[Rfam]
RNA sequence: AUUCGCUGGAUGAGUGUGAGGCGUUAGAUUGAUUUCACUCAAUCCGAGCCCCACAUUCAUCAAGGGAUUCA
Numbered sequence: 001a002u003u004c005g006c007u008g009g010a011u012g013a014g015u016g017u018g019a020g021g022c023g024u025u026a027g028a029u030u031g032a033u034u035u036c037a038c039u040c041a042a043u044c045c046g047a048g049c050c051c052c053a054c055a056u057u058c059a060u061c062a063a064g065g066g067a068u069u070c071a
Base pairs, nucleotide, nucleotide: 004066006064007063009061010060011059012058013057014056015055016054017053018052020050021049022048024047025046027044028043029042030041031040032039
This 71-nucleotide RNA from Nicotiana attenuata belongs to the Rfam family "MIR6151 microRNA precursor family".
Its family is annotated with RISC complex and miRNA-mediated post-transcriptional gene silencing in the Gene Ontology.
Lineage of the source: Eukaryota > Viridiplantae > Euphyllophyta > Magnoliopsida > Nicotiana.